A member of the RNA family "Lysine riboswitch aptamer" from Carboxydothermus hydrogenoformans, 179 nucleotides long.
RNA sequence: AGGUGAGGUAGAGGUGCGGAUGGUCAAGAGUAACCGGGCAAAAACCCCGCAGGUUAAUGCUGCCCGGUGAAAGGGGCCUUCGCCGAAAUCCCUUACGGUAGCGGACGUAAGGGGUUGGGCCUAUGCCGAACAGGUAUAGGACUGUCACCCGUUUUAGCGGGUGGAGCGCUACCUUGCUG
Numbered sequence: 001a002g003g004u005g006a007g008g009u010a011g012a013g014g015u016g017c018g019g020a021u022g023g024u025c026a027a028g029a030g031u032a033a034c035c036g037g038g039c040a041a042a043a044a045c046c047c048c049g050c051a052g053g054u055u056a057a058u059g060c061u062g063c064c065c066g067g068u069g070a071a072a073g074g075g076g077c078c079u080u081c082g083c084c085g086a087a088a089u090c091c092c093u094u095a096c097g098g099u100a101g102c103g104g105a106c107g108u109a110a111g112g113g114g115u116u117g118g119g120c121c122u123a124u125g126c127c128g129a130a131c132a133g134g135u136a137u138a139g140g141a142c143u144g145u146c147a148c149c150c151g152u153u154u155u156a157g158c159g160g161g162u163g164g165a166g167c168g169c170u171a172c173c174u175u176g177c178u179g
Stems, first nucleotide, its partner, number of pairs: 006174006016083005022078004033068008087116011117143002120140008145164007

Taxonomically the source falls in Carboxydothermus hydrogenoformans (Bacteria, Bacillati, Thermoanaerobacterales, Carboxydothermus).